Source information:
Rfam assigns this 154-nucleotide sequence from Glycine max to the family "MIR4371 microRNA precursor family". It scores 119 bits against the family's covariance model. The organism belongs to Glycine subgen. Soja, within Eukaryota. The family is grouped with related families in Rfam's "MIR4387 microRNA precursor clan".
[Rfam]
RNA sequence: UCAUUAAGUGAUGAUGUGGAAACAAAGUGUCAGGUCAUUGCGUCUUGUCACGAACACCUCAUUGCCAUGUCAUCACCUUCAAUGAUGUGUCAAUGACGUGUUAGUGACAAGGCAUCAUGACAUGACACUUUGUCUAUGUCAUCGCUUAACGAAA
Numbered sequence: 001u002c003a004u005u006a007a008g009u010g011a012u013g014a015u016g017u018g019g020a021a022a023c024a025a026a027g028u029g030u031c032a033g034g035u036c037a038u039u040g041c042g043u044c045u046u047g048u049c050a051c052g053a054a055c056a057c058c059u060c061a062u063u064g065c066c067a068u069g070u071c072a073u074c075a076c077c078u079u080c081a082a083u084g085a086u087g088u089g090u091c092a093a094u095g096a097c098g099u100g101u102u103a104g105u106g107a108c109a110a111g112g113c114a115u116c117a118u119g120a121c122a123u124g125a126c127a128c129u130u131u132g133u134c135u136a137u138g139u140c141a142u143c144g145c146u147u148a149a150c151g152a153a154a
Base pairs, nucleotide, nucleotide: 001152002151004149005148006147007146008145009144010143011142012141013140014139015138016137017136018135019134022133023132024131025130026129027128028127029126030125031124032123034121035120036119037118038117040115042113043112044111045110047108048107049106050105051104053102054101055100056099057098069086070085071084072083073082
The family has 4 seed sequences and 321 matches in Rfam 15.1.